The record is a 136-nucleotide sequence from Dactylosporangium sucinum, which matches "c-di-AMP riboswitch aptamer (ydaO/yuaA leader)" in Rfam.
RNA sequence: CAGACGGCACCGCCGAGUCGAUAUCCGAGCCGGGGACCCACGUGUCCAAUCGGGGUGAAUCCGCGACUGAUCGCGGUAGGGCGACCUUCCCGUCCGAACCCGUCAGCUAACCCGGUAGGCGGCCUUGGAAGAAGGA
Numbered sequence: 001c002a003g004a005c006g007g008c009a010c011c012g013c014c015g016a017g018u019c020g021a022u023a024u025c026c027g028a029g030c031c032g033g034g035g036a037c038c039c040a041c042g043u044g045u046c047c048a049a050u051c052g053g054g055g056u057g058a059a060u061c062c063g064c065g066a067c068u069g070a071u072c073g074c075g076g077u078a079g080g081g082c083g084a085c086c087u088u089c090c091c092g093u094c095c096g097a098a099c100c101c102g103u104c105a106g107c108u109a110a111c112c113c114g115g116u117a118g119g120c121g122g123c124c125u126u127g128g129a130a131g132a133a134g135g136a
Stems, first nucleotide, its partner, number of pairs: 011121004018028003029116006039052001053101003061076004079095004
Lineage of the source: Bacteria > Actinomycetota > Actinomycetes > Micromonosporales > Dactylosporangium. Pairs were carried over by alignment from the consensus structure.